RNA sequence: AGGGUAGGUAGGAUCGGGGUGCUAGCCGUGCCCCAUACCGAAAAUCGGCUUUAUGUCGGGAUCAGUAACUAUUAGGUAAAUUCGUGAAUGGGAGGUUACCCGCUCAUCCGACUAGGAUGAAAUCAUGCCGUAUCGGAUGGCUAUGAGCAGCAAAUUACACGAAGGUGUAAUAUUGACUGCGAAAUGCUGAAAUGGGUGAGGUCCGGGAGGGAGCAAUCCUAAGGCAUCGUAGCCGUGCUGUUACGUCUACGUGGUGGAUUUAGGAGGAUUUGAAAUGGGGCCUCUUGUUUACGUUGGUACUAAUAGGCUACCCU
Numbered sequence: 001a002g003g004g005u006a007g008g009u010a011g012g013a014u015c016g017g018g019g020u021g022c023u024a025g026c027c028g029u030g031c032c033c034c035a036u037a038c039c040g041a042a043a044a045u046c047g048g049c050u051u052u053a054u055g056u057c058g059g060g061a062u063c064a065g066u067a068a069c070u071a072u073u074a075g076g077u078a079a080a081u082u083c084g085u086g087a088a089u090g091g092g093a094g095g096u097u098a099c100c101c102g103c104u105c106a107u108c109c110g111a112c113u114a115g116g117a118u119g120a121a122a123u124c125a126u127g128c129c130g131u132a133u134c135g136g137a138u139g140g141c142u143a144u145g146a147g148c149a150g151c152a153a154a155u156u157a158c159a160c161g162a163a164g165g166u167g168u169a170a171u172a173u174u175g176a177c178u179g180c181g182a183a184a185u186g187c188u189g190a191a192a193u194g195g196g197u198g199a200g201g202u203c204c205g206g207g208a209g210g211g212a213g214c215a216a217u218c219c220u221a222a223g224g225c226a227u228c229g230u231a232g233c234c235g236u237g238c239u240g241u242u243a244c245g246u247c248u249a250c251g252u253g254g255u256g257g258a259u260u261u262a263g264g265a266g267g268a269u270u271u272g273a274a275a276u277g278g279g280g281c282c283u284c285u286u287g288u289u290u291a292c293g294u295u296g297g298u299a300c301u302a303a304u305a306g307g308c309u310a311c312c313c314u
Stems, first nucleotide, its partner, number of pairs: 001314007012063004016034007038059004043054001070305006080295001084292003089287008099279004103272001106269004112263005118257001122255006129245004134240003137236008147180004151175003154171007184227005194219004202211003
This 314-nucleotide sequence from Candidatus Nitrosocosmicus franklandianus belongs to the Rfam family "Archaeal signal recognition particle RNA".
By type it is a non-coding RNA gene.
A reference for the family is Wild et al. (2002), "Towards the structure of the mammalian signal recognition particle", Curr Opin Struct Biol.
The organism belongs to Candidatus Nitrosocosmicus, within Archaea.